[Rfam]
RNA sequence: GGGAUAUGAUGAGUGGUCAUUACUCGCAAGCGUUGCGAGAUGGGUGUCCGCCCCACGCCUGGUUACGACAACCUGGGCACUCCCAUUUUUACCAUCUGAUCCC
Numbered sequence: 001g002g003g004a005u006a007u008g009a010u011g012a013g014u015g016g017u018c019a020u021u022a023c024u025c026g027c028a029a030g031c032g033u034u035g036c037g038a039g040a041u042g043g044g045u046g047u048c049c050g051c052c053c054c055a056c057g058c059c060u061g062g063u064u065a066c067g068a069c070a071a072c073c074u075g076g077g078c079a080c081u082c083c084c085a086u087u088u089u090u091a092c093c094a095u096c097u098g099a100u101c102c103c
Stems, first nucleotide, its partner, number of pairs: 001103004014094004023039005042082005047076002061073003
Rfam assigns this 103-nucleotide sequence from Corchorus olitorius to the family "Small nucleolar RNA Z279/snoR105/snoR108". The match comes from Rfam's covariance-model search (94 bits). This family includes the plant snoRNAs known as Z279, snoR105 and snoR108. The base pairs follow the family's consensus structure, which was predicted with PFOLD. It is annotated as a C/D-box small nucleolar RNA.